[Rfam]
RNA sequence: GUUUUGGGACCAUUCAAAACAGCAUAGCAAGUUAAA
Numbered sequence: 001g002u003u004u005u006g007g008g009a010c011c012a013u014u015c016a017a018a019a020c021a022g023c024a025u026a027g028c029a030a031g032u033u034a035a036a
Stems, first nucleotide, its partner, number of pairs: 001020007
Shown here is a 36-nucleotide sequence from Streptococcus pyogenes, a member of the family "CRISPR RNA direct repeat element". Pairs were carried over by alignment from the consensus structure, which was predicted with WAR. Rfam's curators put it in the seed alignment.